[Rfam]
RNA: gntR-DTE RNA
RNA sequence: GGGGUGAUGGCCGUUGGCAGCCACUUCGUGGCAGGUGAACGUGUCCUGCCCUGUGCGUCAGCUCUGGAGAACACUCGCGCGGAUCAUCCCUUCCUUCCGGGAGGUCAGCCGCUCGUGGUGCCACCUGCUGCACGCUGCCCUGCUGGCGUCAGAGCAGUGACGAUGACGCGCCCG
Dot-bracket structure: ...............((((((...............................(((((.(((...(((....((((.........................................))))))).))).)))))))))))...................................